A member of the RNA family "MIR2593 microRNA precursor family" from Medicago truncatula, 115 nucleotides long. Pairs were carried over by alignment from the consensus structure, which was predicted with RNAalifold. Taxonomically the source falls in Medicago (Eukaryota, Streptophytina, Pentapetalae, rosids). Rfam links the family to the GO terms RISC complex and miRNA-mediated post-transcriptional gene silencing.
RNA sequence: AUAUAAGCAAAAAUCCACUUUUUAGAUACAUUCAAUUAAUGAUGUAUGUGAUCUAAAUUUUAGAUCACAUACAUCAUUAAUUGAAUGUAUCUAAAAAGUGGAUUUUUGCUUAUAU
Dot-bracket structure: .((((((.(((((.(((((((((((.((((((((((((((((((....((((...........))))....)))))))))))))))))).))))))))))).))))).)))))).